[Rfam]
RNA sequence: AGAGUGUUAUGAUGUUGGAGCCCUCGCUCCGAGUCUAGCUCUGCGCGACUCUCCGGAACUCUCCGGAGAG
Numbered sequence: 001a002g003a004g005u006g007u008u009a010u011g012a013u014g015u016u017g018g019a020g021c022c023c024u025c026g027c028u029c030c031g032a033g034u035c036u037a038g039c040u041c042u043g044c045g046c047g048a049c050u051c052u053c054c055g056g057a058a059c060u061c062u063c064c065g066g067a068g069a070g
Stems, first nucleotide, its partner, number of pairs: 002041004011035003017030005049070009
L17 ribosomal protein downstream element: a 70-nucleotide RNA from Enterococcus canis. The base pairs follow the family's consensus structure, which is taken from published work. Rfam classes the family as a cis-regulatory element. NCBI's taxonomy places the organism under Bacteria, Bacillati, Bacillota, Lactobacillales, Enterococcus.